Small nucleolar RNA Z152/R70/R12/: a 107-nucleotide RNA from Kingdonia uniflora. The literature on the family includes a 2001 paper in J Mol Biol by Barneche et al., "Identification of 66 box C/D snoRNAs in Arabidopsis thaliana: extensive gene duplications generated multiple isoforms predicting new ribosomal RNA 2'-O-methylation sites".
RNA sequence: GAUGCAAUGAUGAGAUUUGAGUGUGUUUGGGCAGUGGGUGAGACUCUAAACCAAUUUCUACCGCGAGCCUUAUCACCAUCAAAUGACUUCUCCUUCUUCUGAGCAUC
Number, nucleotide and partner (000 for none) at each position: 001g107002a106003u105004g104005c103006a000007a000008u000009g000010a000011u000012g000013a000014g000015a000016u000017u000018u000019g000020a000021g000022u000023g000024u000025g000026u000027u000028u000029g000030g000031g000032c000033a000034g000035u000036g000037g000038g000039u000040g000041a000042g000043a000044c000045u000046c000047u000048a000049a000050a000051c000052c000053a000054a000055u000056u000057u000058c000059u000060a000061c000062c000063g000064c000065g000066a000067g000068c000069c000070u000071u000072a000073u000074c000075a000076c000077c000078a000079u000080c000081a000082a000083a000084u000085g000086a000087c000088u000089u000090c000091u000092c000093c000094u000095u000096c000097u000098u000099c000100u000101g000102a000103g005104c004105a003106u002107c001
The base pairs follow the family's consensus structure, which was predicted with PFOLD. Gene Ontology terms of the family: RNA processing and nucleolus. The source organism's lineage runs through Eukaryota, Streptophytina, Euphyllophyta, Magnoliopsida and Kingdonia.